The record is a 35-nucleotide RNA sequence from Phascolarctos cinereus, which matches "Iron response element I" in Rfam.
NCBI's taxonomy places the organism under Eukaryota, Bilateria, Gnathostomata, Dipnotetrapodomorpha, Phascolarctos.
The base pairs follow the family's consensus structure, which is taken from published work.
Rfam links the family to the GO term response to iron ion.
RNA sequence: AAGCUUCUUGCUUCAACAGUGCUUGAAUGGAACCU
Numbered sequence: 001a002a003g004c005u006u007c008u009u010g011c012u013u014c015a016a017c018a019g020u021g022c023u024u025g026a027a028u029g030g031a032a033c034c035u
Stems, first nucleotide, its partner, number of pairs: 001035001003033001005032004010028001012027005017021001